U5 spliceosomal RNA: a 116-nucleotide RNA from Notothenia coriiceps. Rfam's curators write: U5 RNA is a component of both types of known spliceosome. NCBI's taxonomy places the organism under Eukaryota, Craniata, Gnathostomata, Acanthomorphata, Notothenia. The literature on the family includes a 1997 paper in Nucleic Acids Res by Zwieb, "The uRNA database". The base pairs follow the family's consensus structure, which is taken from published work. Rfam links the family to the GO terms spliceosomal tri-snRNP complex assembly and U5 snRNP.
RNA sequence: UUACUCUGGUUUCUCUUCAAAGCGUAUAAGUCUUUCGCCUUUUACUAAAGACUUCCGUGGAGAGGAACACCUACGAGUUCAACCUAUUUUUGGAGGCUUGGCCAUUUGGCUGAGCG
Numbered sequence: 001u002u003a004c005u006c007u008g009g010u011u012u013c014u015c016u017u018c019a020a021a022g023c024g025u026a027u028a029a030g031u032c033u034u035u036c037g038c039c040u041u042u043u044a045c046u047a048a049a050g051a052c053u054u055c056c057g058u059g060g061a062g063a064g065g066a067a068c069a070c071c072u073a074c075g076a077g078u079u080c081a082a083c084c085u086a087u088u089u090u091u092g093g094a095g096g097c098u099u100g101g102c103c104a105u106u107u108g109g110c111u112g113a114g115c116g
Stems, first nucleotide, its partner, number of pairs: 003078004009068011028054008096115006